Shown here is a 155-nucleotide sequence from Carnegiea gigantea, a member of the family "small nucleolar RNA snoR135". The family's RNA type in Rfam is H/ACA-box small nucleolar RNA. A reference for the family is Chen and Wu (2009), "Mining small RNA sequencing data: a new approach to identify small nucleolar RNAs in Arabidopsis", Nucleic Acids Res. Taxonomically the source falls in Carnegiea (Eukaryota, Viridiplantae, Gunneridae, Caryophyllales).
Nucleotides: 155
Base pairs, nucleotide, nucleotide: 004074005073006072007071008070009069010068015047016046017045018044019043020042086149087148088147089146090145091144092143093142094141095140096139100136101135102134103133104132105131
Number, partner (000 for none) and nucleotide at each position: 001000a002000a003000a004074g005073c006072a007071g008070g009069g010068a011000u012000u013000g014000u015047g016046u017045g018044c019043a020042u021000c022000g023000g024000u025000g026000u027000g028000g029000u030000g031000c032000u033000g034000u035000a036000a037000a038000a039000u040000c041000a042020a043019u044018g045017c046016a047015c048000c049000a050000a051000a052000a053000a054000u055000c056000u057000g058000c059000c060000g061000a062000a063000a064000g065000a066000g067000u068010u069009c070008c071007c072006u073005g074004c075000a076000a077000u078000a079000u080000c081000g082000a083000a084000u085000u086149g087148g088147g089146g090145a091144a092143g093142a094141u095140g096139g097000g098000c099000a100136g101135u102134u103133g104132u105131g106000u107000u108000u109000c110000a111000u112000u113000c114000u115000u116000u117000u118000u119000u120000c121000u122000c123000u124000u125000g126000a127000u128000u129000u130000u131105c132104a133103c134102a135101a136100c137000a138000a139096u140095c141094a142093u143092u144091u145090u146089c147088c148087c149086c150000a151000a152000a153000u154000u155000u